[Rfam]
RNA sequence: GGCCACCUUCGGGGGGCUUAUCACAUAGGAUCCACACGGAUCCCCAAGCUUACGGAAGACAGAAA
Numbered sequence: 001g002g003c004c005a006c007c008u009u010c011g012g013g014g015g016g017c018u019u020a021u022c023a024c025a026u027a028g029g030a031u032c033c034a035c036a037c038g039g040a041u042c043c044c045c046a047a048g049c050u051u052a053c054g055g056a057a058g059a060c061a062g063a064a065a
Stems, first nucleotide, its partner, number of pairs: 001018004006014003028043006
Rfam assigns this 65-nucleotide sequence from Tropicibacter naphthalenivorans to the family "L2-Alphaproteobacteria ribosomal protein leader".
A reference for the family is Eckert and Weinberg (2020), "Discovery of 20 novel ribosomal leader candidates in bacteria and archaea", BMC Microbiol.
It scores 57 bits against the family's covariance model.